[Rfam]
RNA sequence: UAUCUUAAGAAGCCGAAUUCCCGUUUCAACGGGAAGCGGGGGAACCGUCUUGGGUGAAUUGAUCUCGCAACAGAGGGGUCAUAGGCUAACCUUCAGCCGAACCCUUAAGCUAACCUCGCAGGCAUUGGAAGGAGCUUAU
Numbered sequence: 001u002a003u004c005u006u007a008a009g010a011a012g013c014c015g016a017a018u019u020c021c022c023g024u025u026u027c028a029a030c031g032g033g034a035a036g037c038g039g040g041g042g043a044a045c046c047g048u049c050u051u052g053g054g055u056g057a058a059u060u061g062a063u064c065u066c067g068c069a070a071c072a073g074a075g076g077g078g079u080c081a082u083a084g085g086c087u088a089a090c091c092u093u094c095a096g097c098c099g100a101a102c103c104c105u106u107a108a109g110c111u112a113a114c115c116u117c118g119c120a121g122g123c124a125u126u127g128g129a130a131g132g133a134g135c136u137u138a139u
Base pairs, nucleotide, nucleotide: 012123013122014121018035019034020033021032022031023030024029036119037118038117039116040115041114052104053103054102060081061080062079063078064077065076066075084098085097086096087095